[Rfam]
A member of the RNA family "Small Cajal body-specific RNA 7" from Crypturellus undulatus, 320 nucleotides long. It scores 202 bits against the family's covariance model. NCBI's taxonomy places the organism under Eukaryota, Euteleostomi, Sauropsida, Aves, Crypturellus. Pairs were carried over by alignment from the consensus structure. It is annotated as a small Cajal body RNA. The literature on the family includes a 2002 paper in EMBO J by Darzacq et al., "Cajal body-specific small nuclear RNAs: a novel class of 2'-O-methylation and pseudouridylation guide RNAs".

RNA sequence: UGGAAGUGAUGAAAUAGAGAUAAUUGGAUGUCUGUCUGGAUGGAGUGUGUAUGGUAAAUAGCAUUUGAAUUAAAUCAAACUUCUGGGGGGUGGGGGAAGUGUGUGUGUGUUUGUGUGUGGUAUAAAAGGCUAAAAACUGGGGGCACUGAUAAUGAAGUGCUGAUUCCGGAGUGCAUCUGAGGCAUGUUGUUAAAUUCUGGGGUGUUGCUUUUCAACAUUGCCGAUGAUUAGAGCCCAAAACAAGCUCACCAGACUAGCCUUGGCAUCUUAAAAAUCUCUAACAGGUUCAUUAGUGAAAAUGAUCCUGUGAUCUGAUCCAA
Numbered sequence: 001u002g003g004a005a006g007u008g009a010u011g012a013a014a015u016a017g018a019g020a021u022a023a024u025u026g027g028a029u030g031u032c033u034g035u036c037u038g039g040a041u042g043g044a045g046u047g048u049g050u051a052u053g054g055u056a057a058a059u060a061g062c063a064u065u066u067g068a069a070u071u072a073a074a075u076c077a078a079a080c081u082u083c084u085g086g087g088g089g090g091u092g093g094g095g096g097a098a099g100u101g102u103g104u105g106u107g108u109g110u111u112u113g114u115g116u117g118u119g120g121u122a123u124a125a126a127a128g129g130c131u132a133a134a135a136a137c138u139g140g141g142g143g144c145a146c147u148g149a150u151a152a153u154g155a156a157g158u159g160c161u162g163a164u165u166c167c168g169g170a171g172u173g174c175a176u177c178u179g180a181g182g183c184a185u186g187u188u189g190u191u192a193a194a195u196u197c198u199g200g201g202g203u204g205u206u207g208c209u210u211u212u213c214a215a216c217a218u219u220g221c222c223g224a225u226g227a228u229u230a231g232a233g234c235c236c237a238a239a240a241c242a243a244g245c246u247c248a249c250c251a252g253a254c255u256a257g258c259c260u261u262g263g264c265a266u267c268u269u270a271a272a273a274a275u276c277u278c279u280a281a282c283a284g285g286u287u288c289a290u291u292a293g294u295g296a297a298a299a300u301g302a303u304c305c306u307g308u309g310a311u312c313u314g315a316u317c318c319a320a
Stems, first nucleotide, its partner, number of pairs: 001319004185217005193206003197201001